Archaeal small subunit ribosomal RNA: a 359-nucleotide part of an RNA from Caldisphaera lagunensis.
RNA sequence: GGCCUAAAGCGCCCGUAGCCGGUCUAGCAAGUCCUCUCUGAAAGCUCCGGGCCUAACCCGGAGAGUGGAGAGGAUACUGCUAGGCUAGGGGGCGGGAAAGGCCGGGGGUACUCCUAGGGUAGGGGCGAAAUCCGAUAAUCCUAGGAGGACCACCAGUGGCGAAGGCGCCCGGCUGGAACGCGCCCGACGGUGAGGGGCGAAAGCUGGGGGAGCGAACCGGAUUAGAUACCCGGGUAGUCCCAGCUGUAAACGAUGCAGGCUAGGUGUUAGAUGGGCGUUAGGGUCCAUCUAGUGCCGCAGGGAAGCCGUUAAGCCUGCCGCCUGGGGAGUACGGCCGCAAGGCUGAAACUUAAAGGAAU
Numbered sequence: 001g002g003c004c005u006a007a008a009g010c011g012c013c014c015g016u017a018g019c020c021g022g023u024c025u026a027g028c029a030a031g032u033c034c035u036c037u038c039u040g041a042a043a044g045c046u047c048c049g050g051g052c053c054u055a056a057c058c059c060g061g062a063g064a065g066u067g068g069a070g071a072g073g074a075u076a077c078u079g080c081u082a083g084g085c086u087a088g089g090g091g092g093c094g095g096g097a098a099a100g101g102c103c104g105g106g107g108g109u110a111c112u113c114c115u116a117g118g119g120u121a122g123g124g125g126c127g128a129a130a131u132c133c134g135a136u137a138a139u140c141c142u143a144g145g146a147g148g149a150c151c152a153c154c155a156g157u158g159g160c161g162a163a164g165g166c167g168c169c170c171g172g173c174u175g176g177a178a179c180g181c182g183c184c185c186g187a188c189g190g191u192g193a194g195g196g197g198c199g200a201a202a203g204c205u206g207g208g209g210g211a212g213c214g215a216a217c218c219g220g221a222u223u224a225g226a227u228a229c230c231c232g233g234g235u236a237g238u239c240c241c242a243g244c245u246g247u248a249a250a251c252g253a254u255g256c257a258g259g260c261u262a263g264g265u266g267u268u269a270g271a272u273g274g275g276c277g278u279u280a281g282g283g284u285c286c287a288u289c290u291a292g293u294g295c296c297g298c299a300g301g302g303a304a305g306c307c308g309u310u311a312a313g314c315c316u317g318c319c320g321c322c323u324g325g326g327g328a329g330u331a332c333g334g335c336c337g338c339a340a341g342g343c344u345g346a347a348a349c350u351u352a353a354a355g356g357a358a359u
Stems, first nucleotide, its partner, number of pairs: 001322003009319001011198004016192001018191003022085007030078002032074009045063007089185003092181003100174007107151002111147008122133003159166002203244006212238002217233004255318006263296014300307002324351003333344004
On this family, see Yusupov et al., Science 2001: "Crystal structure of the ribosome at 5.5 A resolution".